[Rfam]
RNA: MIR7725 microRNA precursor family
Organism: Chiloscyllium punctatum
RNA sequence: CUGUUCGCCGAGCUGGGAGUUUGUCUUGCAAACGUUUCAUCCCCUGUCUAGGUGACAUCCUCAGUGCUUGGGAGCCUCAUGUGAAGCGAUUCUGUGAAGGCUCCCAAGCACUGAGGAUGUCACCUAGACAGGGGACGAAACGUUUGCAAGACAAAUUCCCAGCUCGGCGAACAG
Numbered sequence: 001c002u003g004u005u006c007g008c009c010g011a012g013c014u015g016g017g018a019g020u021u022u023g024u025c026u027u028g029c030a031a032a033c034g035u036u037u038c039a040u041c042c043c044c045u046g047u048c049u050a051g052g053u054g055a056c057a058u059c060c061u062c063a064g065u066g067c068u069u070g071g072g073a074g075c076c077u078c079a080u081g082u083g084a085a086g087c088g089a090u091u092c093u094g095u096g097a098a099g100g101c102u103c104c105c106a107a108g109c110a111c112u113g114a115g116g117a118u119g120u121c122a123c124c125u126a127g128a129c130a131g132g133g134g135a136c137g138a139a140a141c142g143u144u145u146g147c148a149a150g151a152c153a154a155a156u157u158c159c160c161a162g163c164u165c166g167g168c169g170a171a172c173a174g
Stems, first nucleotide, its partner, number of pairs: 002173002005170006012163007020155015035139003040135004045130012058117002061114003065110013